Shown here is a 77-nucleotide RNA from Allobosea sp. RAC05, a member of the family "Makes More Granules Regulator RNA (mmgR)".
Taxonomically the source falls in Allobosea (Bacteria, Pseudomonadota, Alphaproteobacteria, Alloboseaceae).
For this family Rfam cites "Evidence for a second class of S-adenosylmethionine riboswitches and other regulatory RNA motifs in alpha-proteobacteria" (Corbino et al., Genome Biol, 2005).
Pairs were carried over by alignment from the consensus structure.
RNA sequence: CUCGACUGCCCUUCCUGGGCGUUUCCUCCCUAGACUUGGCUGGCCGGUUCUCCGCGCCAGCCAUUUUUCUCGCAGUU
Numbered sequence: 001c002u003c004g005a006c007u008g009c010c011c012u013u014c015c016u017g018g019g020c021g022u023u024u025c026c027u028c029c030c031u032a033g034a035c036u037u038g039g040c041u042g043g044c045c046g047g048u049u050c051u052c053c054g055c056g057c058c059a060g061c062c063a064u065u066u067u068u069c070u071c072g073c074a075g076u077u
Stems, first nucleotide, its partner, number of pairs: 008020004038062007045054002